[Rfam]
RNA sequence: UGUUAAAAAAAUUAUCAAUUUCUAUUAUUAAAAGCUGGCAUGGCUGAUAGAAUAAUCAAAUGGUGAUACGUGAUGUGCCACAUGUAUCUCAUGCUAAUAUACAAGAACUCAGUUUUUAACAGUAAAUAUGUAUGAAAUUUGUAAUA
Numbered sequence: 001u002g003u004u005a006a007a008a009a010a011a012u013u014a015u016c017a018a019u020u021u022c023u024a025u026u027a028u029u030a031a032a033a034g035c036u037g038g039c040a041u042g043g044c045u046g047a048u049a050g051a052a053u054a055a056u057c058a059a060a061u062g063g064u065g066a067u068a069c070g071u072g073a074u075g076u077g078c079c080a081c082a083u084g085u086a087u088c089u090c091a092u093g094c095u096a097a098u099a100u101a102c103a104a105g106a107a108c109u110c111a112g113u114u115u116u117u118a119a120c121a122g123u124a125a126a127u128a129u130g131u132a133u134g135a136a137a138u139u140u141g142u143a144a145u146a
Base pairs, nucleotide, nucleotide: 002145003144004143005142007140008139009138012135013134014133015132018129019128021126023124024123025122026121028119029118030117031116032115033114

Record summary: This 146-nucleotide RNA sequence from Gossypium gossypioides belongs to the Rfam family "MIR7502 microRNA precursor family". The family's consensus secondary structure was predicted with RNAalifold. The match comes from Rfam's covariance-model search (89 bits). Taxonomically the source falls in Gossypium (Eukaryota, Tracheophyta, Euphyllophyta, Malvoideae).